[Rfam]
RNA sequence: ACAAUGAUACUUCCGUCCAGUCAUAGAAACAAGCAAUGAGGGCGGCUUCGGGAGAACCUCGGAGGGAUGAGAUUUUCAUGA
Dot-bracket structure: ...........(((((((.....................))))))(((.(((.....))).)))(((.......))))...
Shown here is an 81-nucleotide sequence, a member of the family "pemK RNA".